[Rfam]
RNA sequence: UAAAAAUUGAAUAAAUGACCGCAGACAGUUGGUACUCAUUGAGUUUAAUUAUCCAACCGAGGUGAGAAUAUAGAUAUUAUAUAUAUUAAAAGUUUCUCUUCGUCUGCGGAGAGAUUUUCUUUUUGAGGA
Number, nucleotide and partner (000 for none) at each position: 001u000002a000003a000004a000005a000006a000007u000008u000009g000010a000011a000012u000013a000014a000015a000016u000017g000018a000019c000020c000021g000022c000023a000024g000025a000026c000027a000028g057029u056030u055031g054032g053033u000034a044035c043036u042037c000038a000039u000040u000041g000042a036043g035044u034045u000046u000047a000048a000049u000050u000051a000052u000053c032054c031055a030056a029057c028058c000059g000060a000061g000062g000063u000064g000065a000066g000067a000068a000069u000070a000071u000072a000073g000074a000075u000076a000077u000078u000079a000080u000081a000082u000083a000084u000085a000086u000087u000088a000089a000090a000091a000092g000093u000094u000095u114096c113097u112098c111099u110100u109101c108102g107103u000104c000105u000106g000107c102108g101109g100110a099111g098112a097113g096114a095115u000116u000117u000118u000119c000120u000121u000122u000123u000124u000125g000126a000127g000128g000129a000
RNA: Ribosomal protein L10 leader
Organism: Sedimentibacter hydroxybenzoicus